Overview
This 284-nucleotide RNA sequence from Sciurus carolinensis belongs to the Rfam family "bip internal ribosome entry site (IRES)". This family represents the bip internal ribosome entry site (IRES). BiP protein expression has been found to be significantly enhanced by the heat shock response due to IRES-dependent translation. It is thought that this translational mechanism is essential for the survival of cells under stress. The source organism's lineage runs through Eukaryota, Metazoa, Vertebrata, Theria and Sciurus. The family's consensus secondary structure was predicted with PFOLD.

RNA sequence: CACUGGCGGAGACAACACAGACAGACAGAGUUGAGGUGUGACGAGUGUGAGAGGUAAGUGCAGCGGCCUGCUUUCCCCGGGCCUACCUUUUACCUUGUUCGCAGCUCUUCCUGAUCUGGUGCCCUUGCGGUUCACAGACCCGUAACCUCACUGCGCUCGGUUCUGCGGCCUGUUGCUGGAUUUCCUGCGACUUCUGCCUGUCUGCCUCCCUGCCUGCUGACCGAGAGCAAGUGGCCGACAGCUACGGCAAGAUGAAGCUCUCUCUGGUAGCCGCGGUGCUACUG
Numbered sequence: 001c002a003c004u005g006g007c008g009g010a011g012a013c014a015a016c017a018c019a020g021a022c023a024g025a026c027a028g029a030g031u032u033g034a035g036g037u038g039u040g041a042c043g044a045g046u047g048u049g050a051g052a053g054g055u056a057a058g059u060g061c062a063g064c065g066g067c068c069u070g071c072u073u074u075c076c077c078c079g080g081g082c083c084u085a086c087c088u089u090u091u092a093c094c095u096u097g098u099u100c101g102c103a104g105c106u107c108u109u110c111c112u113g114a115u116c117u118g119g120u121g122c123c124c125u126u127g128c129g130g131u132u133c134a135c136a137g138a139c140c141c142g143u144a145a146c147c148u149c150a151c152u153g154c155g156c157u158c159g160g161u162u163c164u165g166c167g168g169c170c171u172g173u174u175g176c177u178g179g180a181u182u183u184c185c186u187g188c189g190a191c192u193u194c195u196g197c198c199u200g201u202c203u204g205c206c207u208c209c210c211u212g213c214c215u216g217c218u219g220a221c222c223g224a225g226a227g228c229a230a231g232u233g234g235c236c237g238a239c240a241g242c243u244a245c246g247g248c249a250a251g252a253u254g255a256a257g258c259u260c261u262c263u264c265u266g267g268u269a270g271c272c273g274c275g276g277u278g279c280u281a282c283u284g
Base pairs, nucleotide, nucleotide: 004273005272006271007270009268017161018160020158032119034117035116036115037114058107060105061104063102064101065100066099166178167177168176169175